Description
This 92-nucleotide sequence from Breoghania sp. L-A4 belongs to the Rfam family "Glycine riboswitch aptamer". The match comes from Rfam's covariance-model search (59 bits). NCBI's taxonomy places the organism under Bacteria, Pseudomonadota, Alphaproteobacteria, Stappiaceae, Breoghania. From the family's description: This family represents the bacterial glycine riboswitch. Pairs were carried over by alignment from the consensus structure.
RNA sequence: AAUGGCCAGGCGGGAGAGACCGGGAGAAUCCCCCGGCGCCGAAGGAGCAACCGCCCCGGAAACUCUCAGGCACCCAGGACCGCACGGCCAAG
Numbered sequence: 001a002a003u004g005g006c007c008a009g010g011c012g013g014g015a016g017a018g019a020c021c022g023g024g025a026g027a028a029u030c031c032c033c034c035g036g037c038g039c040c041g042a043a044g045g046a047g048c049a050a051c052c053g054c055c056c057c058g059g060a061a062a063c064u065c066u067c068a069g070g071c072a073c074c075c076a077g078g079a080c081c082g083c084a085c086g087g088c089c090a091a092g
Stems, first nucleotide, its partner, number of pairs: 006087002010083004020036004038071003041067002045065003051059002